[Rfam]
RNA sequence: GCUGCUCUGAUAAUCACACACCUCUUCGUGGUGAGCAGCAGGCAACAAUUUGAGAAUCAAAGAUUCGAUGAUUGGCGAAGAUGUGAGA
Numbered sequence: 001g002c003u004g005c006u007c008u009g010a011u012a013a014u015c016a017c018a019c020a021c022c023u024c025u026u027c028g029u030g031g032u033g034a035g036c037a038g039c040a041g042g043c044a045a046c047a048a049u050u051u052g053a054g055a056a057u058c059a060a061a062g063a064u065u066c067g068a069u070g071a072u073u074g075g076c077g078a079a080g081a082u083g084u085g086a087g088a
Stems, first nucleotide, its partner, number of pairs: 001039007020032003046074005
The record is an 88-nucleotide RNA from Intestinibaculum porci, which matches "HDV ribozyme from F. prausnitzii" in Rfam. The organism belongs to Intestinibaculum, within Bacteria. It scores 74 bits against the family's covariance model.